Shown here is a 56-nucleotide RNA from Microvirga aerophila, a member of the family "terC RNA". The match comes from Rfam's covariance-model search (55 bits). Lineage of the source: Bacteria > Alphaproteobacteria > Hyphomicrobiales > Methylobacteriaceae > Microvirga.
[Rfam]
RNA sequence: GAACCAGACCGGGCCCCUCUGGCGGUUCAGUUGAGCUGCGAUGUCGGACUGGAUGU
Numbered sequence: 001g002a003a004c005c006a007g008a009c010c011g012g013g014c015c016c017c018u019c020u021g022g023c024g025g026u027u028c029a030g031u032u033g034a035g036c037u038g039c040g041a042u043g044u045c046g047g048a049c050u051g052g053a054u055g056u
Base pairs, nucleotide, nucleotide: 006050007049009047010046011045012044022039023038024037025036026035027034028033